[Rfam]
RNA sequence: GCGAGGUGACGAUAGAAAUUCAUGUCUGUCAAUCCACUGACUAUAUUAGUGUGAUGUUUCCAUGAAUCCCGACAGGUUCCGAUCGC
Numbered sequence: 001g002c003g004a005g006g007u008g009a010c011g012a013u014a015g016a017a018a019u020u021c022a023u024g025u026c027u028g029u030c031a032a033u034c035c036a037c038u039g040a041c042u043a044u045a046u047u048a049g050u051g052u053g054a055u056g057u058u059u060c061c062a063u064g065a066a067u068c069c070c071g072a073c074a075g076g077u078u079c080c081g082a083u084c085g086c
Stems, first nucleotide, its partner, number of pairs: 001086004

Rfam assigns this 86-nucleotide RNA sequence from Momordica charantia to the family "Small nucleolar RNA snoR14". Pairs were carried over by alignment from the consensus structure. It scores 91 bits against the family's covariance model. Rfam links the family to the GO terms nucleolus and RNA processing. For this family Rfam cites "Multiple snoRNA gene clusters from Arabidopsis" (Brown et al., RNA, 2001).